Description:
A member of the RNA family "Selenocysteine transfer RNA" from Pseudaminobacter soli, 93 nucleotides long. Lineage of the source: Bacteria > Pseudomonadati > Pseudomonadota > Alphaproteobacteria > Pseudaminobacter. The family is grouped with related families in Rfam's "tRNA clan". For this family Rfam cites "Eukaryotic selenocysteine tRNA has the 9/4 secondary structure" (Mizutani and Goto, FEBS Lett, 2000). Its family is annotated with triplet codon-amino acid adaptor activity in the Gene Ontology.
Nucleotides: 093
Base pairs, nucleotide, nucleotide: 001093002092003091004090005089006088007087008086011025012024013023014022016021026044027043028042029041030040031039046067048065049064050063070084071083072082073081
Number, partner (000 for none) and nucleotide at each position: 001093g002092g003091a004090a005089g006088a007087g008086a009000c010000g011025u012024g013023c014022u015000g016021c017000c018000g019000a020000u021016g022014g023013g024012c025011g026044c027043c028042c029041g030040g031039a032000c033000a034000u035000c036000a037000a038000a039031u040030c041029c042028g043027g044026g045000a046067a047000u048065g049064g050063g051000g052000c053000c054000g055000u056000g057000a058000g059000a060000a061000c062000g063050u064049c065048c066000u067046u068000g069000g070084u071083g072082g073081g074000u075000u076000c077000g078000a079000c080000u081073c082072c083071c084070a085000c086008u087007c088006u089005c090004u091003u092002c093001c